This 119-nucleotide RNA sequence from Vanilla planifolia belongs to the Rfam family "Small nucleolar RNA snoR104".
The match comes from Rfam's covariance-model search (56 bits).
Rfam classes the family as an H/ACA-box small nucleolar RNA.

RNA sequence: GGGGGGCAUCCACGAGGUAGGCGAUCCCCCGAUACAAUCUUCCUACAUCAAGUUUGUAACUUCCUGCUUGUUUUGCUUAAAUUAAGCUUGUACAAGUCUCUUGUUACAAAGACAAAAGA
Number, nucleotide and partner (000 for none) at each position: 001g030002g029003g028004g000005g026006g025007c000008a000009u000010c021011c020012a000013c000014g000015a000016g000017g000018u000019a000020g011021g010022c000023g000024a000025u006026c005027c000028c003029c002030c001031g000032a000033u000034a000035c000036a000037a000038u000039c000040u000041u000042c000043c000044u000045a000046c000047a000048u000049c000050a000051a000052g000053u000054u000055u112056g000057u110058a000059a000060c000061u000062u000063c000064c000065u000066g097067c096068u095069u094070g093071u092072u000073u090074u000075g087076c086077u084078u000079a000080a000081a000082u000083u000084a077085a000086g076087c075088u000089u000090g073091u000092a071093c070094a069095a068096g067097u066098c000099u000100c000101u000102u000103g000104u000105u000106a000107c000108a000109a000110a057111g000112a055113c000114a000115a000116a000117a000118g000119a000